[Rfam]
RNA sequence: AACUUGUUCGUAGAACAAAGGAGAAGCAGAUUAUCUAUACCGAUAAGUACCAAUACGCAAUGGG
Numbered sequence: 001a002a003c004u005u006g007u008u009c010g011u012a013g014a015a016c017a018a019a020g021g022a023g024a025a026g027c028a029g030a031u032u033a034u035c036u037a038u039a040c041c042g043a044u045a046a047g048u049a050c051c052a053a054u055a056c057g058c059a060a061u062g063g064g
Stems, first nucleotide, its partner, number of pairs: 003021001005017005040063002047056003